[Rfam]
Shown here is an 81-nucleotide RNA from Muraenolepis orangiensis, a member of the family "let-7 microRNA precursor family". The family's consensus secondary structure was predicted with RNAalifold. A search with the family's covariance model found it, with a score of 74 bits. The literature on the family includes a 2001 paper in Nat Rev Genet by Rougvie, "Control of developmental timing in animals". Rfam 15.1 lists 8,694 matches to the family in 797 species. Rfam links the family to the GO terms miRNA-mediated post-transcriptional gene silencing and RISC complex.
RNA sequence: UUGGGGUGAGGUAGUAGGUUGUAUAGUUUUAGGGUAACUACCCGGAUGUCAGAUGACUAUACAACUUACUGUCUUUCCUAA
Numbered sequence: 001u002u003g004g005g006g007u008g009a010g011g012u013a014g015u016a017g018g019u020u021g022u023a024u025a026g027u028u029u030u031a032g033g034g035u036a037a038c039u040a041c042c043c044g045g046a047u048g049u050c051a052g053a054u055g056a057c058u059a060u061a062c063a064a065c066u067u068a069c070u071g072u073c074u075u076u077c078c079u080a081a
Stems, first nucleotide, its partner, number of pairs: 001081006008075020032043004